[Rfam]
RNA sequence: AUGUAUCUUCAGGGCAGGGUGUAAUUCCCGACCGGCGGUUAUAGUCCGCGAACCGAAAGGUUGAUUUGGUGAAAUUCCAAAACCGACAGUAAAGUCUGGAUGGGAGAGGGUAUUA
Numbered sequence: 001a002u003g004u005a006u007c008u009u010c011a012g013g014g015c016a017g018g019g020u021g022u023a024a025u026u027c028c029c030g031a032c033c034g035g036c037g038g039u040u041a042u043a044g045u046c047c048g049c050g051a052a053c054c055g056a057a058a059g060g061u062u063g064a065u066u067u068g069g070u071g072a073a074a075u076u077c078c079a080a081a082a083c084c085g086a087c088a089g090u091a092a093a094g095u096c097u098g099g100a101u102g103g104g105a106g107a108g109g110g111u112a113u114u115a
Base pairs, nucleotide, nucleotide: 003113004112005111006110007109008108009107010106017029018028019027031095032094033085034084035049036048037047038046044083045082052061053060054059065081066080067079068078069077087098088097089096
FMN riboswitch aptamer (RFN element): a 115-nucleotide sequence from Clostridium grantii. The RFN element is a highly conserved domain that is found frequently in the 5'-untranslated regions of prokaryotic mRNAs that encode for flavin mononucleotide (FMN) biosynthesis and transport proteins. This element is a metabolite-dependent riboswitch that directly binds FMN in the absence of proteins.